[Rfam]
RNA sequence: UCCUCCUUAGCUCAGUUGGUUAGAGCAUCUGACUGUUAAUCAGAGGGUCGCCCGUUCAAGUCGGGCAGGGGGAG
Numbered sequence: 001u002c003c004u005c006c007u008u009a010g011c012u013c014a015g016u017u018g019g020u021u022a023g024a025g026c027a028u029c030u031g032a033c034u035g036u037u038a039a040u041c042a043g044a045g046g047g048u049c050g051c052c053c054g055u056u057c058a059a060g061u062c063g064g065g066c067a068g069g070g071g072g073a074g
Stems, first nucleotide, its partner, number of pairs: 001073007010026004028044005050066005
Shown here is a 74-nucleotide sequence from Chitinophagaceae bacterium IBVUCB2, a member of the family "tRNA".
The organism belongs to Chitinophagaceae, within Bacteria.
A search with the family's covariance model found it, with a score of 66 bits.
Rfam describes the family as follows. Transfer RNA (tRNA) molecules are approximately 80 nucleotides in length.